[Rfam]
Rfam assigns this 66-nucleotide sequence from Roseicyclus elongatus to the family "Glycine riboswitch aptamer". Pairs were carried over by alignment from the consensus structure. A search with the family's covariance model found it, with a score of 37 bits.

RNA sequence: CUCUGGAGAGAGGCGUGCCGCGACACGUCCGCCGAAGGGAUAACGAUCUCAGGCGAAGGGACAGAG
Numbered sequence: 001c002u003c004u005g006g007a008g009a010g011a012g013g014c015g016u017g018c019c020g021c022g023a024c025a026c027g028u029c030c031g032c033c034g035a036a037g038g039g040a041u042a043a044c045g046a047u048c049u050c051a052g053g054c055g056a057a058g059g060g061a062c063a064g065a066g
Base pairs, nucleotide, nucleotide: 001066002065003064004063005062012029013028014027015026031054032053033052034050035049038048039047
About the family: This family represents the bacterial glycine riboswitch.